[Rfam]
RNA: Plastid-ycf2 5UTR RNA
RNA sequence: GGGCAUCCAGUAGGAAUUGAACCAACGAAUUUUCCAAUUAUGAGUUGGGCGCUUUAACCAUUUAUCCAUGCAUGC
Numbered sequence: 001g002g003g004c005a006u007c008c009a010g011u012a013g014g015a016a017u018u019g020a021a022c023c024a025a026c027g028a029a030u031u032u033u034c035c036a037a038u039u040a041u042g043a044g045u046u047g048g049g050c051g052c053u054u055u056a057a058c059c060a061u062u063u064a065u066c067c068a069u070g071c072a073u074g075c
Stems, first nucleotide, its partner, number of pairs: 003075004008070001010026002013023002040069003044066001046064004051059001